[Rfam]
NoRC associated RNA, pRNA: an 89-nucleotide RNA sequence from Homo sapiens.
The family's RNA type in Rfam is non-coding RNA gene.
The family has 23 seed sequences and 354 matches in Rfam 15.1.
A search with the family's covariance model found it, with a score of 78 bits.
For this family Rfam cites "The structure of NoRC-associated RNA is crucial for targeting the chromatin remodelling complex NoRC to the nucleolus" (Mayer et al., EMBO Rep, 2008).
RNA sequence: CCAUGGUGGCCUUUUUGAGGACAGAUGUCCAGGUCGCGCAUUUCUGGGCCGGUGGUGUGGUCGGUGACUUGACACCCCGCCCCCAGGCG
Numbered sequence: 001c002c003a004u005g006g007u008g009g010c011c012u013u014u015u016u017g018a019g020g021a022c023a024g025a026u027g028u029c030c031a032g033g034u035c036g037c038g039c040a041u042u043u044c045u046g047g048g049c050c051g052g053u054g055g056u057g058u059g060g061u062c063g064g065u066g067a068c069u070u071g072a073c074a075c076c077c078c079g080c081c082c083c084c085a086g087g088c089g
Stems, first nucleotide, its partner, number of pairs: 004086001006084001008083002019077002027068003030064001033061007